The record is a 114-nucleotide sequence from Rotaria magnacalcarata, which matches "Potassium channel RNA editing signal" in Rfam. The source organism's lineage runs through Eukaryota, Opisthokonta, Bdelloidea, Philodinidae and Rotaria. It is annotated as a cis-regulatory element. For this family Rfam cites "Control of human potassium channel inactivation by editing of a small mRNA hairpin" (Bhalla et al., Nat Struct Mol Biol, 2004).
RNA sequence: GUGGGUUAUGGUGAUAUCUAUCCGAAAUCGGUGUGGGGCAAACUAAUUGGCGCCGUAUGUUGUGUCUGCGGCGUGCUUGUUAUUGCUUUACCAAUCCCAAUUAUCGUUAAUAAU
Numbered sequence: 001g002u003g004g005g006u007u008a009u010g011g012u013g014a015u016a017u018c019u020a021u022c023c024g025a026a027a028u029c030g031g032u033g034u035g036g037g038g039c040a041a042a043c044u045a046a047u048u049g050g051c052g053c054c055g056u057a058u059g060u061u062g063u064g065u066c067u068g069c070g071g072c073g074u075g076c077u078u079g080u081u082a083u084u085g086c087u088u089u090a091c092c093a094a095u096c097c098c099a100a101u102u103a104u105c106g107u108u109a110a111u112a113a114u
Stems, first nucleotide, its partner, number of pairs: 001114002004111001008107004013102003020095002037077004049063001